RNA sequence: UAACACCAACCUGCAAUCUCUUGUAUAAGCCCGCUAAUACGGUGCGGGCGUAUCUACAGGCAACCGAUAAUUGCCCCAGCUACAAGAGGCGCAUCGCUCUGA
Numbered sequence: 001u002a003a004c005a006c007c008a009a010c011c012u013g014c015a016a017u018c019u020c021u022u023g024u025a026u027a028a029g030c031c032c033g034c035u036a037a038u039a040c041g042g043u044g045c046g047g048g049c050g051u052a053u054c055u056a057c058a059g060g061c062a063a064c065c066g067a068u069a070a071u072u073g074c075c076c077c078a079g080c081u082a083c084a085a086g087a088g089g090c091g092c093a094u095c096g097c098u099c100u101g102a
Stems, first nucleotide, its partner, number of pairs: 018088008029049006059075005
Dot-bracket structure: .................((((((((...((((((.........)))))).........(((((.......))))).....))))))))..............
The family of this 102-nucleotide RNA from Cohnella thailandensis is "Purine riboswitch aptamer". Taxonomically the source falls in Cohnella (Bacteria, Bacillati, Bacilli, Caryophanales). The base pairs follow the family's consensus structure, which is taken from published work. Rfam links the family to the GO term purine nucleobase biosynthetic process. The match comes from Rfam's covariance-model search (59 bits).